Notes:
S15-Flavobacteria ribosomal protein leader: a 65-nucleotide sequence from Flavobacteriaceae bacterium EG-1.

[Rfam]
RNA sequence: UAUAUUUGCACGCUGAUUGAGAAUCAGUCAGAUACAUAAUAAUCAUUUACAAUAAUAUUAGCAUG
Numbered sequence: 001u002a003u004a005u006u007u008g009c010a011c012g013c014u015g016a017u018u019g020a021g022a023a024u025c026a027g028u029c030a031g032a033u034a035c036a037u038a039a040u041a042a043u044c045a046u047u048u049a050c051a052a053u054a055a056u057a058u059u060a061g062c063a064u065g
Base pairs, nucleotide, nucleotide: 014030015029016028017027018026019025
Pairs were carried over by alignment from the consensus structure, which is taken from published work. The literature on the family includes a 2020 paper in BMC Microbiol by Eckert and Weinberg, "Discovery of 20 novel ribosomal leader candidates in bacteria and archaea". The family's RNA type in Rfam is cis-regulatory leader.